[Rfam]
RNA sequence: ACUCAACAUUAAUUUGUUUAAAAAGGGUGAGUUUAGAUUGUAAAAGCAGGCCUUCUCGAUAAAGGAUCCUUGAUCAGUCUGGUAACCCUAAACCUGUUUUCUGGAGUUU
Numbered sequence: 001a002c003u004c005a006a007c008a009u010u011a012a013u014u015u016g017u018u019u020a021a022a023a024a025g026g027g028u029g030a031g032u033u034u035a036g037a038u039u040g041u042a043a044a045a046g047c048a049g050g051c052c053u054u055c056u057c058g059a060u061a062a063a064g065g066a067u068c069c070u071u072g073a074u075c076a077g078u079c080u081g082g083u084a085a086c087c088c089u090a091a092a093c094c095u096g097u098u099u100u101c102u103g104g105a106g107u108u109u
Stems, first nucleotide, its partner, number of pairs: 024089005035080005044071003051065004
Dot-bracket structure: .......................(((((......(((((....(((....((((.......))))...)))....)))))....)))))....................
Shown here is a 109-nucleotide sequence from Maribacter sp. HTCC2170, a member of the family "6S-Flavo RNA".
It is one of the family's seed sequences.
Rfam classes the family as a small RNA.
The base pairs follow the family's consensus structure, which is taken from published work.